[Rfam]
RNA sequence: CUCUCGUAGUCAGAUGUUAGGUUAUCAAGGUAAUCUAAUCAGUACAGAGAGAACAAAGGAGUUUAGUUCCAUGCUUUAAAGCAAAAAAUUGAUUGAAACUGAAGCCGAAAGUACCCUAAUAAUUAGGUGAAAUCUGUGAAAGGUU
Numbered sequence: 001c002u003c004u005c006g007u008a009g010u011c012a013g014a015u016g017u018u019a020g021g022u023u024a025u026c027a028a029g030g031u032a033a034u035c036u037a038a039u040c041a042g043u044a045c046a047g048a049g050a051g052a053a054c055a056a057a058g059g060a061g062u063u064u065a066g067u068u069c070c071a072u073g074c075u076u077u078a079a080a081g082c083a084a085a086a087a088a089u090u091g092a093u094u095g096a097a098a099c100u101g102a103a104g105c106c107g108a109a110a111g112u113a114c115c116c117u118a119a120u121a122a123u124u125a126g127g128u129g130a131a132a133u134c135u136g137u138g139a140a141a142g143g144u145u
Stems, first nucleotide, its partner, number of pairs: 003049003009045002016039009073082003097145004104137002107134002115127005